[Rfam]
RNA sequence: GGCAGAGGGAGCCCGGCCUCCGUGCCCCGGUCCGCGUCGACUCCGUCGGCGCGCUACGGGCAUGAGGAAAGUCCCCCCACCGUCCGGGCAGGUGACCGGGUGCAAACCCGGAGCGGGCGACCGCUGGCGCUGGAACAGAAACGAGACCCCUUCCCCCGACCGAUGACGUGCGCGAACCCCGAGCGAGGCUCCGCCGAAGCGACGGGGAGCUAACCCACGGAGGGUUGCGAGGCGACGCAGUCGCCUCGGGCAGCCGAACGGACCUCGUCCGUGAGGCCGCGCGACGCGCGAGCGCCGCGCCGACGGGGAAGAACGGAUGGAACGGCGAAUCCUCACCGGUGCAAGUCCGCGCGGAAGGUAGCCCGGACGCGAGCGCGGACGCUCAGCCGAAUGCCGGGCCGAACAGAAGGGGGCUUACUCCCCUCAGCC
Number, nucleotide and partner (000 for none) at each position: 001g429002g428003c427004a000005g425006a424007g423008g422009g421010a419011g418012c398013c397014c396015g395016g394017c393018c000019u000020c000021c064022g063023u062024g061025c060026c059027c058028c000029g000030g000031u000032c000033c000034g000035c000036g000037u000038c000039g000040a000041c000042u000043c000044c000045g000046u000047c000048g000049g000050c000051g000052c000053g000054c000055u000056a000057c000058g027059g026060g025061c024062a023063u022064g021065a000066g000067g000068a000069a416070a415071g414072u000073c413074c412075c411076c410077c409078c341079a340080c339081c338082g000083u000084c000085c366086g000087g364088g363089c000090a000091g337092g336093u335094g334095a333096c111097c110098g109099g108100g107101u000102g000103c000104a000105a000106a000107c100108c099109c098110g097111g096112a125113g124114c123115g122116g121117g000118c000119g000120a000121c116122c115123g114124c113125u112126g332127g331128c000129g000130c000131u328132g000133g326134a000135a000136c000137a000138g000139a000140a000141a000142c000143g000144a000145g000146a000147c316148c315149c000150c311151u310152u309153c308154c307155c306156c305157c000158g000159a000160c000161c000162g000163a000164u000165g000166a000167c000168g000169u000170g000171c000172g000173c000174g000175a000176a000177c000178c000179c000180c000181g000182a000183g000184c000185g000186a000187g000188g000189c000190u000191c000192c000193g000194c000195c000196g000197a000198a000199g000200c000201g000202a000203c000204g000205g000206g000207g000208a000209g000210c000211u000212a000213a000214c000215c000216c000217a000218c000219g000220g000221a000222g000223g000224g000225u000226u000227g000228c000229g000230a000231g000232g000233c000234g000235a000236c000237g000238c000239a000240g000241u000242c000243g000244c000245c000246u000247c000248g000249g000250g000251c000252a000253g000254c000255c000256g000257a000258a000259c000260g000261g000262a000263c000264c000265u000266c000267g000268u000269c000270c000271g000272u000273g000274a000275g000276g000277c000278c000279g000280c000281g000282c000283g000284a000285c000286g000287c000288g000289c000290g000291a000292g000293c000294g000295c000296c000297g000298c000299g000300c000301c000302g000303a000304c000305g156306g155307g154308g153309a152310a151311g150312a000313a000314c000315g148316g147317a000318u000319g000320g000321a000322a000323c000324g000325g000326c133327g000328a131329a000330u000331c127332c126333u095334c094335a093336c092337c091338g081339g080340u079341g078342c000343a000344a000345g380346u379347c378348c377349g376350c375351g374352c373353g000354g000355a000356a000357g000358g000359u000360a000361g000362c000363c088364c087365g000366g085367a000368c000369g000370c000371g000372a000373g352374c351375g350376c349377g348378g347379a346380c345381g000382c000383u000384c000385a000386g000387c000388c000389g000390a000391a000392u000393g017394c016395c015396g014397g013398g012399c000400c000401g000402a000403a000404c000405a000406g000407a000408a000409g077410g076411g075412g074413g073414c071415u070416u069417a000418c011419u010420c000421c009422c008423c007424u006425c005426a000427g003428c002429c001
Archaeal RNase P: a 429-nucleotide RNA sequence from Halosimplex carlsbadense. It scores 128 bits against the family's covariance model. The family is grouped with related families in Rfam's "RNaseP clan". It is annotated as a ribozyme. Ribonuclease P (RNase P) is a ubiquitous endoribonuclease, found in archaea, bacteria and eukarya as well as chloroplasts and mitochondria. Its best characterised activity is the generation of mature 5'-ends of tRNAs by cleaving the 5'-leader elements of precursor-tRNAs. Cellular RNase Ps are ribonucleoproteins. RNA from bacterial RNase Ps retains its catalytic activity in the absence of the protein subunit, i.e. it is a ribozyme. Lineage of the source: Archaea > Halobacteria > Halobacteriales > Haloarculaceae > Halosimplex carlsbadense.